[Rfam]
RNA: mir-196 microRNA precursor family
Nucleotides: 078
Stems, first nucleotide, its partner, number of pairs: 003076008012067008022057010
Number, partner (000 for none) and nucleotide at each position: 001000u002000c003076c004075g005074u006073g007072g008071u009070c010069u011000a012067g013066g014065u015064a016063g017062u018061u019060u020000c021000a022057u023056g024055u025054u026053g027052u028051u029050g030049g031048g032000g033000u034000u035000u036000a037000c038000g039000c040000u041000c042000c043000a044000g045000a046000u047000g048031u049030c050029c051028g052027a053026c054025a055024g056023c057022a058000g059000a060019a061018a062017a063016c064015u065014g066013c067012c068000c069010g070009g071008a072007c073006c074005g075004c076003g077000c078000c